[Rfam]
RNA sequence: CAUUAUAAGCAGAAGCAUCCCGCUUCUCACCUUACAACCUGUUGUUCGUAAGGUUAUCAAUGUAAACAAUAUUUUUAUGUUGUUAGCGUUUAUUAGCGGGUGUUUAUGCACCCGCUUUUAAUAUUUUUU
Dot-bracket structure: ..........((((((.....)))))).(((..((.((.....))..))..)))........................................(((((((((....))))))))).............

Record summary: A member of the RNA family "Ribosomal protein L20 leader" from Desulforamulus ferrireducens, 129 nucleotides long. A search with the family's covariance model found it, with a score of 74 bits. A reference for the family is Zengel and Lindahl (1994), "Diverse mechanisms for regulating ribosomal protein synthesis in Escherichia coli", Prog Nucleic Acid Res Mol Biol. Rfam's curators write: This family is a putative r-protein leader autoregulatory structure found in B. subtilis and other low-GC Gram-positive bacteria. It is located in the 5' untranslated regions of mRNAs encoding initiation factor 3 followed by ribosomal proteins L35 and L20 (infC-rpmI-rplT). A Rho-independent transcription terminator structure that is probably involved in regulation is included at the 3' end.